Shown here is an 85-nucleotide RNA from Medicago truncatula, a member of the family "small nucleolar RNA snoR126". A reference for the family is Chen and Wu (2009), "Mining small RNA sequencing data: a new approach to identify small nucleolar RNAs in Arabidopsis", Nucleic Acids Res. It is annotated as a C/D-box small nucleolar RNA. Rfam 15.1 lists 423 matches to the family in 200 species.
RNA sequence: AGGCUGUGAUGAACAACAACAUUUCUCGAAUCUGAUAAUGAUUAUAUUGUUUUUUGAUGACCGUGUUUGUGCGUGUCUGAGCCUC
Numbered sequence: 001a002g003g004c005u006g007u008g009a010u011g012a013a014c015a016a017c018a019a020c021a022u023u024u025c026u027c028g029a030a031u032c033u034g035a036u037a038a039u040g041a042u043u044a045u046a047u048u049g050u051u052u053u054u055u056g057a058u059g060a061c062c063g064u065g066u067u068u069g070u071g072c073g074u075g076u077c078u079g080a081g082c083c084u085c
Stems, first nucleotide, its partner, number of pairs: 001084004
About this RNA:
Pairs were carried over by alignment from the consensus structure, which was predicted with RNAalifold.